This 366-nucleotide RNA sequence from Garicola koreensis belongs to the Rfam family "Bacterial RNase P class A". Its Rfam clan is "RNaseP clan". The source organism's lineage runs through Bacteria, Bacillati, Actinomycetota, Micrococcaceae and Garicola. By type it is a ribozyme.

RNA sequence: CGGGUCGGCCAGGCCAUCGCGGUGCACUGAUGAGGUGCAUCGAGGAAAGUCCGGGCUCCGCAGGGCAGGAUGGUGGGUAACGCCCACUCGGGGUGACCCGCAGGCCAGUGCCACAGAAAACAGACCGCCCCGGCACGCCGGGGUAAGGGUGAAACGGCGGUGUAAGAGACCACCAGUGCACCGGGUGACCGGUGCGGCUCGGCAAACCCCAUCCGGAGCAAGGUCGAACAGGAUGCGCGGAGCCUCACGGCUCCUGCAGGGCUGCCCGCCCGAGCAUCCGGGUUGACUGCUUGAGGCCCGUGGCAACACGGCGCCCAGAUGGAUGAUGGUCCACGACAGAACCCGGCUUAUCGGCCGACCCGUCCC
Numbered sequence: 001c002g003g004g005u006c007g008g009c010c011a012g013g014c015c016a017u018c019g020c021g022g023u024g025c026a027c028u029g030a031u032g033a034g035g036u037g038c039a040u041c042g043a044g045g046a047a048a049g050u051c052c053g054g055g056c057u058c059c060g061c062a063g064g065g066c067a068g069g070a071u072g073g074u075g076g077g078u079a080a081c082g083c084c085c086a087c088u089c090g091g092g093g094u095g096a097c098c099c100g101c102a103g104g105c106c107a108g109u110g111c112c113a114c115a116g117a118a119a120a121c122a123g124a125c126c127g128c129c130c131c132g133g134c135a136c137g138c139c140g141g142g143g144u145a146a147g148g149g150u151g152a153a154a155c156g157g158c159g160g161u162g163u164a165a166g167a168g169a170c171c172a173c174c175a176g177u178g179c180a181c182c183g184g185g186u187g188a189c190c191g192g193u194g195c196g197g198c199u200c201g202g203c204a205a206a207c208c209c210c211a212u213c214c215g216g217a218g219c220a221a222g223g224u225c226g227a228a229c230a231g232g233a234u235g236c237g238c239g240g241a242g243c244c245u246c247a248c249g250g251c252u253c254c255u256g257c258a259g260g261g262c263u264g265c266c267c268g269c270c271c272g273a274g275c276a277u278c279c280g281g282g283u284u285g286a287c288u289g290c291u292u293g294a295g296g297c298c299c300g301u302g303g304c305a306a307c308a309c310g311g312c313g314c315c316c317a318g319a320u321g322g323a324u325g326a327u328g329g330u331c332c333a334c335g336a337c338a339g340a341a342c343c344c345g346g347c348u349u350a351u352c353g354g355c356c357g358a359c360c361c362g363u364c365c366c
Stems, first nucleotide, its partner, number of pairs: 001362010011351001012331007020042009047349003051346005056218004063267004068214005073087005088102001089100004103209002108207002110203003125148002127144007156174002159171003176198001177196008222288004231279006259271004295314001298311005
Ribonuclease P (RNase P) is a ubiquitous endoribonuclease, found in archaea, bacteria and eukarya as well as chloroplasts and mitochondria. Its best characterised activity is the generation of mature 5'-ends of tRNAs by cleaving the 5'-leader elements of precursor-tRNAs.